Fluoride riboswitch aptamer (crcB RNA motif): a 61-nucleotide sequence from Paenibacillus lentus. It scores 63 bits against the family's covariance model. Pairs were carried over by alignment from the consensus structure, which is taken from published work. The source organism's lineage runs through Bacteria, Bacillota, Bacilli, Paenibacillaceae and Paenibacillus.
RNA sequence: AUCGAUGAAGGCGAUGGAGUUCGCCAGAACCGCCGGAAAGGCUGAUGACUCCUACCAGUGC
Numbered sequence: 001a002u003c004g005a006u007g008a009a010g011g012c013g014a015u016g017g018a019g020u021u022c023g024c025c026a027g028a029a030c031c032g033c034c035g036g037a038a039a040g041g042c043u044g045a046u047g048a049c050u051c052c053u054a055c056c057a058g059u060g061c
Stems, first nucleotide, its partner, number of pairs: 010025004016052006032042003